[Rfam]
RNA sequence: UAAAAGGGUCAGUUGGCUAAAUAUGCCACGCUCAUCCUUGAAUGGUGAGUGCUGUAUGGCUAUCAAGACAUAUGGCUGACAUAAUUUGUGCAACUCAAAGGGUUGGCUCGCUUUGGUCGACCCUACU
Numbered sequence: 001u002a003a004a005a006g007g008g009u010c011a012g013u014u015g016g017c018u019a020a021a022u023a024u025g026c027c028a029c030g031c032u033c034a035u036c037c038u039u040g041a042a043u044g045g046u047g048a049g050u051g052c053u054g055u056a057u058g059g060c061u062a063u064c065a066a067g068a069c070a071u072a073u074g075g076c077u078g079a080c081a082u083a084a085u086u087u088g089u090g091c092a093a094c095u096c097a098a099a100g101g102g103u104u105g106g107c108u109c110g111c112u113u114u115g116g117u118c119g120a121c122c123c124u125a126c127u
Stems, first nucleotide, its partner, number of pairs: 008080005014028004029051007052075007099124008108116003

Background
U11 spliceosomal RNA: a 127-nucleotide RNA from Daucus carota. Clan: U1 clan. The literature on the family includes a 2004 paper in Proc Natl Acad Sci U S A by Schneider et al., "Identification of an evolutionarily divergent U11 small nuclear ribonucleoprotein particle in Drosophila". Pairs were carried over by alignment from the consensus structure, which is taken from published work. NCBI's taxonomy places the organism under Eukaryota, Magnoliopsida, eudicotyledons, Apiaceae, Daucus carota. It scores 75 bits against the family's covariance model.